[Rfam]
RNA: Ruegeria cis2 sRNA
Organism: Roseovarius spongiae
RNA sequence: AUUGCUGUUGCGCGGAAAGUAGUUGACGAAGACGAAGCCGCGCGACUGGUCGAUCAGAUGAAACAGCGGGUUCCAGUCGAACAUCGCCAGCAUGAAGGGCGGCAGCGCAUUGGCGACGAACAUCUUGCCCGAGGCGAUCAUGUUCGCGCGCG
Numbered sequence: 001a002u003u004g005c006u007g008u009u010g011c012g013c014g015g016a017a018a019g020u021a022g023u024u025g026a027c028g029a030a031g032a033c034g035a036a037g038c039c040g041c042g043c044g045a046c047u048g049g050u051c052g053a054u055c056a057g058a059u060g061a062a063a064c065a066g067c068g069g070g071u072u073c074c075a076g077u078c079g080a081a082c083a084u085c086g087c088c089a090g091c092a093u094g095a096a097g098g099g100c101g102g103c104a105g106c107g108c109a110u111u112g113g114c115g116a117c118g119a120a121c122a123u124c125u126u127g128c129c130c131g132a133g134g135c136g137a138u139c140a141u142g143u144u145c146g147c148g149c150g151c152g
Base pairs, nucleotide, nucleotide: 002035003034004033006032008030009029013025014024015023040054041052042051066151067150068149070082071081072080073079086147087146089144090143091142092141093140094139100131101130102129103127104126105125107123110119111118112117